The record is an 84-nucleotide sequence from Desulfocucumis palustris, which matches "c-di-GMP-I riboswitch aptamer" in Rfam. NCBI's taxonomy places the organism under Bacteria, Bacillati, Bacillota, Desulfocucumaceae, Desulfocucumis.

RNA sequence: CCAUUGUAAAGGCACACCUGGGGAAACCCGGGGCCGCAAAGCCGUGGGUCUAAGCCGAUAUGGUAUGAUUGCCAGGCUGCCGGG
Dot-bracket structure: ...........((...((((((....))))))...))..((((.((((((....(((...)))...)))..)))))))......